[Rfam]
RNA sequence: UGGCGGCAAGAGUGAUGAUUCAAUUAGAUGUGUGAAAGGAGAUUUCUUCUUUCUGAACUCAAAUCAUUGAGGCAUAUUAAUUUCCUGACUUGCCACCC
Number, nucleotide and partner (000 for none) at each position: 001u000002g097003g096004c000005g094006g093007c092008a091009a090010g089011a000012g000013u000014g000015a000016u000017g000018a000019u000020u000021c000022a000023a000024u000025u000026a000027g000028a000029u000030g000031u000032g000033u000034g000035a000036a000037a000038g000039g000040a000041g000042a000043u000044u000045u000046c000047u000048u000049c000050u000051u000052u000053c000054u000055g000056a000057a000058c000059u000060c000061a000062a000063a000064u000065c000066a000067u000068u000069g000070a000071g000072g000073c000074a000075u000076a000077u000078u000079a000080a000081u000082u000083u000084c000085c000086u000087g000088a000089c010090u009091u008092g007093c006094c005095a000096c003097c002098c000